[Rfam]
RNA sequence: UCUCCCGCUUCUCCUCCCUGAGCGGGUGCCUUAAUCUUUAUUAAGGCGUUCUGCCCCCGGUUUUACUCCCCUUUAACCGGGGGUUUUUUAU
Dot-bracket structure: ...((((((...........)))))).(((((((......)))))))......((((((((..............))))))))........

Shown here is a 91-nucleotide sequence from Sulfurirhabdus autotrophica, a member of the family "Burkholderia RNA 7 (anti-hemB)". From the family's description: This RNA motif was identified by computational search in b-proteobacteria Burkholderia. It is annotated as a small RNA. The source organism's lineage runs through Bacteria, Pseudomonadati, Nitrosomonadales, Sulfuricellaceae and Sulfurirhabdus. The literature on the family includes a 2012 paper in BMC Genomics by Khoo et al., "Computational discovery and RT-PCR validation of novel Burkholderia conserved and Burkholderia pseudomallei unique sRNAs". Its family is annotated with bacterial biofilm matrix and protein binding in the Gene Ontology. The family's consensus secondary structure is taken from published work.